L13-Bacteroidia ribosomal protein leader: a 77-nucleotide sequence. For this family Rfam cites "Discovery of 20 novel ribosomal leader candidates in bacteria and archaea" (Eckert and Weinberg, BMC Microbiol, 2020).
RNA sequence: GGCAGCUUGCUUAGAAGUUGCCGCGCCGGAUAGUGUUAAUAAUCGUGCCUUUGGCCGGACACGAUGGUUAGGGAAUC
Numbered sequence: 001g002g003c004a005g006c007u008u009g010c011u012u013a014g015a016a017g018u019u020g021c022c023g024c025g026c027c028g029g030a031u032a033g034u035g036u037u038a039a040u041a042a043u044c045g046u047g048c049c050u051u052u053g054g055c056c057g058g059a060c061a062c063g064a065u066g067g068u069u070a071g072g073g074a075a076u077c
Base pairs, nucleotide, nucleotide: 001022002021003020004019005018006017007016008015036071037070038069039068040067042065043064044063045062046061047060049058050057